[Rfam]
RNA sequence: UAAAAGGGUGUGUGGCUGCUACUACUAUGCCACAUGGACUUAAGUGUCCAUGCAGAAUCGUCAUCAAGAGAUUUUGCGCACAUAAUUUUUAGGGAUAUAAAUUGGGUGGUUGUCUGGCUUCGCAUUAAGCUGACGCCGCCUCU
Dot-bracket structure: .......(((((((((............))))(((((((......)))))))(((((((..........))))))))))))...................(...(((((.((((.................)))))))))..)
Numbered sequence: 001u002a003a004a005a006g007g008g009u010g011u012g013u014g015g016c017u018g019c020u021a022c023u024a025c026u027a028u029g030c031c032a033c034a035u036g037g038a039c040u041u042a043a044g045u046g047u048c049c050a051u052g053c054a055g056a057a058u059c060g061u062c063a064u065c066a067a068g069a070g071a072u073u074u075u076g077c078g079c080a081c082a083u084a085a086u087u088u089u090u091a092g093g094g095a096u097a098u099a100a101a102u103u104g105g106g107u108g109g110u111u112g113u114c115u116g117g118c119u120u121c122g123c124a125u126u127a128a129g130c131u132g133a134c135g136c137c138g139c140c141u142c143u
Stems, first nucleotide, its partner, number of pairs: 008081005013032004033052007053076007101143001105140005111135004

Rfam assigns this 143-nucleotide sequence from Funneliformis mosseae to the family "U11 spliceosomal RNA". The family is grouped with related families in Rfam's "U1 clan". Lineage of the source: Eukaryota > Opisthokonta > Glomeromycetes > Glomerales > Funneliformis.